[Rfam]
The record is a 246-nucleotide RNA sequence from Shewanella woodyi, which matches "FMN riboswitch aptamer (RFN element)" in Rfam. The match comes from Rfam's covariance-model search (81 bits). Pairs were carried over by alignment from the consensus structure, which is taken from published work. NCBI's taxonomy places the organism under Bacteria, Pseudomonadati, Pseudomonadota, Alteromonadales, Shewanella woodyi.
RNA sequence: GUAAAUUCUCAGGGCGGGGUGAAACUCCCCACCGGCGGUGAUAGCGCUUAAAUUAACCUAAGCCUUAAGCCCGCGAGCGCCCAAAUCAACUUAACAUUGAAGAUGUAAGCUGAUUUGGGGUCAAGCAGAUCUGGUGAACUCUAUCUGAUACAUAUAUAGAACACUCCAGAGCCGACGGUAAUGAACCGUAUUACUCAGAUAACACACUAGUAGUACAGUACUAAGUCCGGAUGAAAGAGAAUAUAA
Numbered sequence: 001g002u003a004a005a006u007u008c009u010c011a012g013g014g015c016g017g018g019g020u021g022a023a024a025c026u027c028c029c030c031a032c033c034g035g036c037g038g039u040g041a042u043a044g045c046g047c048u049u050a051a052a053u054u055a056a057c058c059u060a061a062g063c064c065u066u067a068a069g070c071c072c073g074c075g076a077g078c079g080c081c082c083a084a085a086u087c088a089a090c091u092u093a094a095c096a097u098u099g100a101a102g103a104u105g106u107a108a109g110c111u112g113a114u115u116u117g118g119g120g121u122c123a124a125g126c127a128g129a130u131c132u133g134g135u136g137a138a139c140u141c142u143a144u145c146u147g148a149u150a151c152a153u154a155u156a157u158a159g160a161a162c163a164c165u166c167c168a169g170a171g172c173c174g175a176c177g178g179u180a181a182u183g184a185a186c187c188g189u190a191u192u193a194c195u196c197a198g199a200u201a202a203c204a205c206a207c208u209a210g211u212a213g214u215a216c217a218g219u220a221c222u223a224a225g226u227c228c229g230g231a232u233g234a235a236a237g238a239g240a241a242u243a244u245a246a
Stems, first nucleotide, its partner, number of pairs: 003244001005242006017029003033174002035074004069172002077126002130170005176229003